This 78-nucleotide RNA sequence from Calothrix sp. NIES-3974 belongs to the Rfam family "Cyano-1 RNA". It is annotated as a small RNA. NCBI's taxonomy places the organism under Bacteria, Bacillati, Cyanobacteriota, Cyanophyceae, Calothrix.

[Rfam]
RNA sequence: UUGUGUGUGAGGAGCAAAGUUGAAAGCAGAGGCGCUAGGAGUGGAAACACGGUCACACGUCCUAGCGCUUUUUGCUGU
Numbered sequence: 001u002u003g004u005g006u007g008u009g010a011g012g013a014g015c016a017a018a019g020u021u022g023a024a025a026g027c028a029g030a031g032g033c034g035c036u037a038g039g040a041g042u043g044g045a046a047a048c049a050c051g052g053u054c055a056c057a058c059g060u061c062c063u064a065g066c067g068c069u070u071u072u073u074g075c076u077g078u
Base pairs, nucleotide, nucleotide: 015074028073029072030071031070032069033067034066038062039061040060041058042057043056